About this RNA:
The family of this 73-nucleotide RNA from Leifsonia xyli is "tRNA". The base pairs follow the family's consensus structure, which is taken from published work.
[Rfam]
RNA sequence: GCGCCUCUAGCUCAAUCGGCAGAGCAAUUGACUCUUAAUCAAUGGGUUCAGGGUUCAAGUCCCUGGGGGCGCA
Numbered sequence: 001g002c003g004c005c006u007c008u009a010g011c012u013c014a015a016u017c018g019g020c021a022g023a024g025c026a027a028u029u030g031a032c033u034c035u036u037a038a039u040c041a042a043u044g045g046g047u048u049c050a051g052g053g054u055u056c057a058a059g060u061c062c063c064u065g066g067g068g069g070c071g072c073a
Base pairs, nucleotide, nucleotide: 001072002071003070004069005068006067007066010025011024012023013022027043028042029041030040031039049065050064051063052062053061